The record is a 69-nucleotide RNA, which matches "Fluoride riboswitch aptamer (crcB RNA motif)" in Rfam. The base pairs follow the family's consensus structure, which is taken from published work. The match comes from Rfam's covariance-model search (38 bits).
[Rfam]
RNA sequence: GAGGACGCGGGCGAUGGCGUCCGCCCGCCCCGAACGCCGGACACGCCGGCUGAUGGCGCCUUCUACGUA
Numbered sequence: 001g002a003g004g005a006c007g008c009g010g011g012c013g014a015u016g017g018c019g020u021c022c023g024c025c026c027g028c029c030c031c032g033a034a035c036g037c038c039g040g041a042c043a044c045g046c047c048g049g050c051u052g053a054u055g056g057c058g059c060c061u062u063c064u065a066c067g068u069a
Stems, first nucleotide, its partner, number of pairs: 010025004016060006036050004